[Rfam]
RNA sequence: UGGGGAUCGGGUCUUCUGAGUCCGCAGCACUUAGGCUACGUGUACCUCCGCAGAAGGUGCAGACCCAGCAAUCCUCC
Numbered sequence: 001u002g003g004g005g006a007u008c009g010g011g012u013c014u015u016c017u018g019a020g021u022c023c024g025c026a027g028c029a030c031u032u033a034g035g036c037u038a039c040g041u042g043u044a045c046c047u048c049c050g051c052a053g054a055a056g057g058u059g060c061a062g063a064c065c066c067a068g069c070a071a072u073c074c075u076c077c
Stems, first nucleotide, its partner, number of pairs: 002076006009066005016034006043059005
RNA: bZIP non canonical Hac1/Xbp1 intron